RNA sequence: UUCCCCGAGGAGCGCUGCGACGGCCAGAAGCCGCCAGGCUCGGGGCGAUGGCCUCAACCCAACGGCGCUCGAUUACA
Numbered sequence: 001u002u003c004c005c006c007g008a009g010g011a012g013c014g015c016u017g018c019g020a021c022g023g024c025c026a027g028a029a030g031c032c033g034c035c036a037g038g039c040u041c042g043g044g045g046c047g048a049u050g051g052c053c054u055c056a057a058c059c060c061a062a063c064g065g066c067g068c069u070c071g072a073u074u075a076c077a
Stems, first nucleotide, its partner, number of pairs: 003045006021033004